Y RNA: a 100-nucleotide RNA from Propithecus coquereli. The family's RNA type in Rfam is non-coding RNA gene. About the family: Y RNAs are components of the Ro ribonucleoprotein particle (Ro RNP), in association with Ro60 and La proteins.
RNA sequence: GAUUGGUCGAAGUGCAGUGGUGUUUACAACUAAUUGAUCACAACCAAUCACAGAUUCCUUUUUCUCUUCUCUACUCCCACUGCUUCACUUGACCAAAAAU
Numbered sequence: 001g002a003u004u005g006g007u008c009g010a011a012g013u014g015c016a017g018u019g020g021u022g023u024u025u026a027c028a029a030c031u032a033a034u035u036g037a038u039c040a041c042a043a044c045c046a047a048u049c050a051c052a053g054a055u056u057c058c059u060u061u062u063u064c065u066c067u068u069c070u071c072u073a074c075u076c077c078c079a080c081u082g083c084u085u086c087a088c089u090u091g092a093c094c095a096a097a098a099a100u
Stems, first nucleotide, its partner, number of pairs: 003096006010090002014086001016081005022076001029063001032060002
Notes: Taxonomically the source falls in Propithecus (Eukaryota, Teleostomi, Primates, Lemuriformes). The family's consensus secondary structure is taken from published work.